RNA sequence: AAGUCCUUUAAAUCAAUCCUGUGAGGUUGAGAAGGUAACGGAUUCUAGCUAUUUUUAGUAAUAGCUAUCUUAGUAUACGUAUAUCCUCUCAUCCAAAAGGGUGAGAGGAUAUUUUUU
Numbered sequence: 001a002a003g004u005c006c007u008u009u010a011a012a013u014c015a016a017u018c019c020u021g022u023g024a025g026g027u028u029g030a031g032a033a034g035g036u037a038a039c040g041g042a043u044u045c046u047a048g049c050u051a052u053u054u055u056u057a058g059u060a061a062u063a064g065c066u067a068u069c070u071u072a073g074u075a076u077a078c079g080u081a082u083a084u085c086c087u088c089u090c091a092u093c094c095a096a097a098a099g100g101g102u103g104a105g106a107g108g109a110u111a112u113u114u115u116u117u
Stems, first nucleotide, its partner, number of pairs: 005035005013030006046067008081112014
The family of this 117-nucleotide RNA sequence from Niallia circulans is "PyrR binding site". The source organism's lineage runs through Bacteria, Bacillati, Bacilli, Caryophanales and Niallia. On this family, see Bonner et al., Nucleic Acids Res 2001: "Molecular recognition of pyr mRNA by the Bacillus subtilis attenuation regulatory protein PyrR".